[Rfam]
RNA sequence: CUACGCAACAUGUCUUUUGGCAGAGACGGGGGAACCACAUGCGGGUUCCUGACUACAGGGCCCUAGGGGUUAAGUCGCUCACCCAGCGACCGGGUGUCUCCCAUCCGAAUCCGACAGCUCACCUCGUAGGCAAAAGGGAGGAAUA
Number, nucleotide and partner (000 for none) at each position: 001c025002u024003a000004c000005g000006c000007a000008a000009c000010a000011u000012g000013u000014c000015u000016u000017u000018u000019g000020g000021c000022a000023g000024a002025g001026a127027c126028g125029g124030g123031g122032g000033a000034a000035c000036c066037a000038c000039a000040u000041g000042c000043g000044g000045g000046u000047u000048c000049c000050u000051g000052a000053c000054u000055a000056c000057a000058g000059g000060g000061c000062c000063c000064u000065a000066g036067g112068g111069g110070u000071u000072a000073a000074g000075u089076c088077g087078c086079u000080c000081a000082c000083c000084c000085a000086g078087c077088g076089a075090c000091c000092g106093g105094g104095u103096g000097u000098c000099u000100c000101c000102c000103a095104u094105c093106c092107g000108a000109a000110u069111c068112c067113g000114a000115c000116a000117g000118c000119u000120c000121a000122c031123c030124u029125c028126g027127u026128a000129g000130g000131c000132a000133a000134a000135a000136g000137g000138g000139a000140g000141g000142a000143a000144u000145a000

Record summary
This 145-nucleotide sequence from Rothia santali belongs to the Rfam family "c-di-AMP riboswitch aptamer (ydaO/yuaA leader)". The match comes from Rfam's covariance-model search (59 bits). The base pairs follow the family's consensus structure.